About this RNA
Rfam assigns this 170-nucleotide RNA sequence from Firmicutes bacterium CAG:882 to the family "Clostridiales-1 RNA". The family's RNA type in Rfam is small RNA.

RNA sequence: UAAUAAGUCCAUCAAAAUAUAUAUCGCGUGGCUGCUUACAGACAAAGCGAUAUAUAUUUUAGAUGGGCAAACCUAUAUGAGCAAGUAAUGGUUCAGCUUAGCUGAACCACGGAUUGCGAAUGUAGGUAAUGGUUUCGAGAGUUCGCAGAACGGAGAAACCAUUCUUAUUA
Numbered sequence: 001u002a003a004u005a006a007g008u009c010c011a012u013c014a015a016a017a018u019a020u021a022u023a024u025c026g027c028g029u030g031g032c033u034g035c036u037u038a039c040a041g042a043c044a045a046a047g048c049g050a051u052a053u054a055u056a057u058u059u060u061a062g063a064u065g066g067g068c069a070a071a072c073c074u075a076u077a078u079g080a081g082c083a084a085g086u087a088a089u090g091g092u093u094c095a096g097c098u099u100a101g102c103u104g105a106a107c108c109a110c111g112g113a114u115u116g117c118g119a120a121u122g123u124a125g126g127u128a129a130u131g132g133u134u135u136c137g138a139g140a141g142u143u144c145g146c147a148g149a150a151c152g153g154a155g156a157a158a159c160c161a162u163u164c165u166u167a168u169u170a
Stems, first nucleotide, its partner, number of pairs: 001170007008067004014060014029045001030043001032041003071127008081117004089109008130161007141151004